Notes
mir-1343 microRNA precursor family: an 83-nucleotide RNA from Sciurus carolinensis. The match comes from Rfam's covariance-model search (56 bits). Its family is annotated with RISC complex and miRNA-mediated post-transcriptional gene silencing in the Gene Ontology.
RNA sequence: CUAGCGUCAAUGCUGGGGAGCAGCCCUCGGGCUGGGCCUUCACUUUGGCCCCUCUUGGGGCCCUCACUUUUGCUACGGGCCCA
Numbered sequence: 001c002u003a004g005c006g007u008c009a010a011u012g013c014u015g016g017g018g019a020g021c022a023g024c025c026c027u028c029g030g031g032c033u034g035g036g037c038c039u040u041c042a043c044u045u046u047g048g049c050c051c052c053u054c055u056u057g058g059g060g061c062c063c064u065c066a067c068u069u070u071u072g073c074u075a076c077g078g079g080c081c082c083a
Base pairs, nucleotide, nucleotide: 004080005079007078008077012073013072015070016069017068018067020065023062025060026059027058028057029056030055031054034051035050036049037048038047